The record is a 69-nucleotide RNA from Amycolatopsis antarctica, which matches "ASpks TB sRNA" in Rfam. It scores 52 bits against the family's covariance model.

[Rfam]
RNA sequence: CUUCACCGAGCCCAGCCACAGCGGGCGCUCCCGGUCGGGACCGUAGGUCGCCUGGAGUGCGCGGACCUC
Numbered sequence: 001c002u003u004c005a006c007c008g009a010g011c012c013c014a015g016c017c018a019c020a021g022c023g024g025g026c027g028c029u030c031c032c033g034g035u036c037g038g039g040a041c042c043g044u045a046g047g048u049c050g051c052c053u054g055g056a057g058u059g060c061g062c063g064g065a066c067c068u069c
Stems, first nucleotide, its partner, number of pairs: 016024002029065003032059002038053002041050001043048001